[Rfam]
RNA sequence: GAAAAGCACUUUUGCAAUUCGCUCUGGAUAAAAGCGUCUGCUAAAUGCCGUAAA
Numbered sequence: 001g002a003a004a005a006g007c008a009c010u011u012u013u014g015c016a017a018u019u020c021g022c023u024c025u026g027g028a029u030a031a032a033a034g035c036g037u038c039u040g041c042u043a044a045a046u047g048c049c050g051u052a053a054a
Stems, first nucleotide, its partner, number of pairs: 013043001014041003020036004025031001
The family of this 54-nucleotide sequence from Electrophorus electricus is "UnaL2 LINE 3' element". Taxonomically the source falls in Electrophorus (Eukaryota, Neopterygii, Otophysi, Characiphysae). Rfam describes the family as follows. The eel long interspersed element (LINE) UnaL2 and its partner short interspersed element (SINE) share a conserved 3' tail containing a stem-loop that is critical for their retrotransposition. The family's RNA type in Rfam is cis-regulatory element. It scores 56 bits against the family's covariance model.